The record is an 87-nucleotide RNA from Lachnospiraceae bacterium 3_1_57FAA_CT1, which matches "Fluoride riboswitch aptamer (crcB RNA motif)" in Rfam. It scores 44 bits against the family's covariance model.
RNA sequence: UCGAAGAUUGGAAAUGAAGUUCUUCCAUGGUACCGGAUACCAACGGAUUACCUAAACCGCUUGACAGCUGAUGACUUCUGCGACAAA
Numbered sequence: 001u002c003g004a005a006g007a008u009u010g011g012a013a014a015u016g017a018a019g020u021u022c023u024u025c026c027a028u029g030g031u032a033c034c035g036g037a038u039a040c041c042a043a044c045g046g047a048u049u050a051c052c053u054a055a056a057c058c059g060c061u062u063g064a065c066a067g068c069u070g071a072u073g074a075c076u077u078c079u080g081c082g083a084c085a086a087a
Stems, first nucleotide, its partner, number of pairs: 010026004016078006059068003